[Rfam]
RNA sequence: CGGUGACCGCCGCCUAAUUGCUCACGCUGAGCGAGCCGGGGAACCACCGUAAGUGGGGUGAAUCCGCAACCGCGGUAGGGAUCGUUCCCGUCCCGAACCCGUCAGCUAACUCGGUAGGCGGCCGACGGGAGGAACG
Numbered sequence: 001c002g003g004u005g006a007c008c009g010c011c012g013c014c015u016a017a018u019u020g021c022u023c024a025c026g027c028u029g030a031g032c033g034a035g036c037c038g039g040g041g042a043a044c045c046a047c048c049g050u051a052a053g054u055g056g057g058g059u060g061a062a063u064c065c066g067c068a069a070c071c072g073c074g075g076u077a078g079g080g081a082u083c084g085u086u087c088c089c090g091u092c093c094c095g096a097a098c099c100c101g102u103c104a105g106c107u108a109a110c111u112c113g114g115u116a117g118g119c120g121g122c123c124g125a126c127g128g129g130a131g132g133a134a135c136g
Stems, first nucleotide, its partner, number of pairs: 011120004018034005035115006045055002056100003064075004078094004

c-di-AMP riboswitch aptamer (ydaO/yuaA leader): a 136-nucleotide RNA from Phytohabitans rumicis.
The match comes from Rfam's covariance-model search (86 bits).
NCBI's taxonomy places the organism under Bacteria, Actinomycetota, Actinomycetes, Micromonosporaceae, Phytohabitans.